[Rfam]
RNA sequence: UCUUCAUUUCACAUGCUAUCUCACUUUGUCUGACCAGCGAGAGAGCUUGUGAAAUGAAGAGA
Numbered sequence: 001u002c003u004u005c006a007u008u009u010c011a012c013a014u015g016c017u018a019u020c021u022c023a024c025u026u027u028g029u030c031u032g033a034c035c036a037g038c039g040a041g042a043g044a045g046c047u048u049g050u051g052a053a054a055u056g057a058a059g060a061g062a
Stems, first nucleotide, its partner, number of pairs: 001060007010051001012049002015046003019042004
This 62-nucleotide RNA from Pristionchus pacificus belongs to the Rfam family "mir-8364 microRNA precursor family". Rfam 15.1 lists 3,320 matches to the family in 2 species. It scores 69 bits against the family's covariance model. Its family is annotated with miRNA-mediated post-transcriptional gene silencing and RISC complex in the Gene Ontology. The family's consensus secondary structure was predicted with RNAalifold. The organism belongs to Pristionchus, within Eukaryota.